[Rfam]
RNA sequence: AUAAAAAAGCUGCCGAAUUUCAGUGUACGAAAACGGGGGAACCACUCCGGGUUAAUUGAUCCCGACCGCGCUUAUUGGAUAUUCAAGCACGGCCAGAGGGUAUCAUAGGUGACCUUCAACCGAACCCCACAGCUAACCUCGUAGGCAAUGGAAGGAGCACUA
Numbered sequence: 001a002u003a004a005a006a007a008a009g010c011u012g013c014c015g016a017a018u019u020u021c022a023g024u025g026u027a028c029g030a031a032a033a034c035g036g037g038g039g040a041a042c043c044a045c046u047c048c049g050g051g052u053u054a055a056u057u058g059a060u061c062c063c064g065a066c067c068g069c070g071c072u073u074a075u076u077g078g079a080u081a082u083u084c085a086a087g088c089a090c091g092g093c094c095a096g097a098g099g100g101u102a103u104c105a106u107a108g109g110u111g112a113c114c115u116u117c118a119a120c121c122g123a124a125c126c127c128c129a130c131a132g133c134u135a136a137c138c139u140c141g142u143a144g145g146c147a148a149u150g151g152a153a154g155g156a157g158c159a160c161u162a
Stems, first nucleotide, its partner, number of pairs: 011147004018032003033142006049127003057105004108121003
RNA: c-di-AMP riboswitch aptamer (ydaO/yuaA leader)
Organism: Paenibacillus curdlanolyticus